[Rfam]
RNA sequence: AUAUUUUGGCAAACGCUGCAUUCUUAGUAAUGUAGAGGAAAGUCCAUGCUUACACAGUCUGUGAUGACUGUAGUGUUUGUGCAUAGGGAAAAAAUAACCUAUGGUAGUUUUUUGACUAACGGCGAGGCUUAACCUAAGUCUUUGGAUAUGGUGAUGCUUCAUAAAGUGCCGCAGUGACGAUGCUUUUAGAAAUAAAAGAGUGAAACGUGGUAAACCCCGCAAGUAAGAAACCCAAAUUUUGGUAGGGGAACCUAAUAGGAGAGAAUAAGAAUUUCUUAUGGGAUUGCUUUUAGCAAUAGAUAAAUGUUUGCCGCCUAGAGAUAGGAACAGAACAUGGCUUAUAAAA
Numbered sequence: 001a002u003a004u005u006u007u008g009g010c011a012a013a014c015g016c017u018g019c020a021u022u023c024u025u026a027g028u029a030a031u032g033u034a035g036a037g038g039a040a041a042g043u044c045c046a047u048g049c050u051u052a053c054a055c056a057g058u059c060u061g062u063g064a065u066g067a068c069u070g071u072a073g074u075g076u077u078u079g080u081g082c083a084u085a086g087g088g089a090a091a092a093a094a095u096a097a098c099c100u101a102u103g104g105u106a107g108u109u110u111u112u113u114g115a116c117u118a119a120c121g122g123c124g125a126g127g128c129u130u131a132a133c134c135u136a137a138g139u140c141u142u143u144g145g146a147u148a149u150g151g152u153g154a155u156g157c158u159u160c161a162u163a164a165a166g167u168g169c170c171g172c173a174g175u176g177a178c179g180a181u182g183c184u185u186u187u188a189g190a191a192a193u194a195a196a197a198g199a200g201u202g203a204a205a206c207g208u209g210g211u212a213a214a215c216c217c218c219g220c221a222a223g224u225a226a227g228a229a230a231c232c233c234a235a236a237u238u239u240u241g242g243u244a245g246g247g248g249a250a251c252c253u254a255a256u257a258g259g260a261g262a263g264a265a266u267a268a269g270a271a272u273u274u275c276u277u278a279u280g281g282g283a284u285u286g287c288u289u290u291u292a293g294c295a296a297u298a299g300a301u302a303a304a305u306g307u308u309u310g311c312c313g314c315c316u317a318g319a320g321a322u323a324g325g326a327a328c329a330g331a332a333c334a335u336g337g338c339u340u341a342u343a344a345a346a
Base pairs, nucleotide, nucleotide: 004346005345006344008312009311010310011309012308013307014306016035017034018033019032020031021030040340041339042338044337045336046335047334048333049227050226051225052224053223054071055070056069057068058067059066077222078221079220080219081218082103083102084101085100086099087098104120105118106117107116108115109114121217122216124160125159126158127157132152133151134150138147139146140145166215167214168211169210170209183198184197185196186195187194188193231247232246233245251282252281253280254279256278257277258276283297284296285295286294287293288292314325315324316323317322
Rfam assigns this 346-nucleotide RNA from Firmicutes bacterium CAG:822 to the family "Bacterial RNase P class B".